[Rfam]
RNA sequence: CAUUAGCACUAGGGGAGCUGUCAUAAUGGCUGAGAGGAACUGUUUCGUUCUGACCCUUUGUACCCGAACCAGGUAAUACUAGCGUGGGGAAGUGUGAUAGAAACGUA
Numbered sequence: 001c002a003u004u005a006g007c008a009c010u011a012g013g014g015g016a017g018c019u020g021u022c023a024u025a026a027u028g029g030c031u032g033a034g035a036g037g038a039a040c041u042g043u044u045u046c047g048u049u050c051u052g053a054c055c056c057u058u059u060g061u062a063c064c065c066g067a068a069c070c071a072g073g074u075a076a077u078a079c080u081a082g083c084g085u086g087g088g089g090a091a092g093u094g095u096g097a098u099a100g101a102a103a104c105g106u107a
Stems, first nucleotide, its partner, number of pairs: 006095005011057004016051001017030005037050004063088004069082001071080002

This 107-nucleotide sequence from Virgibacillus oceani belongs to the Rfam family "TPP riboswitch aptamer (THI element)".
The organism belongs to Virgibacillus, within Bacteria.
Pairs were carried over by alignment from the consensus structure, which is taken from published work.
Rfam describes the family as follows. Vitamin B(1) in its active form thiamin pyrophosphate (TPP) is an essential coenzyme that is synthesised by coupling of pyrimidine and thiazole moieties in bacteria.